[Rfam]
RNA sequence: UAAAAUCGCAGUGACUGACGAGAAUAGUGGAAGAGACCACUGGGGAGCUGCGUCAUAGGAAUAGCCGUUCGUCUGGGCAGGGGUA
Numbered sequence: 001u002a003a004a005a006u007c008g009c010a011g012u013g014a015c016u017g018a019c020g021a022g023a024a025u026a027g028u029g030g031a032a033g034a035g036a037c038c039a040c041u042g043g044g045g046a047g048c049u050g051c052g053u054c055a056u057a058g059g060a061a062u063a064g065c066c067g068u069u070c071g072u073c074u075g076g077g078c079a080g081g082g083g084u085a
Stems, first nucleotide, its partner, number of pairs: 003056001007052006015044002017073005027040004062080001064078003

This 85-nucleotide RNA from Bacillus mesophilus belongs to the Rfam family "ZMP/ZTP riboswitch aptamer (pfl RNA motif)". The source organism's lineage runs through Bacteria, Bacillati, Bacilli, Bacillaceae and Bacillus. The match comes from Rfam's covariance-model search (60 bits).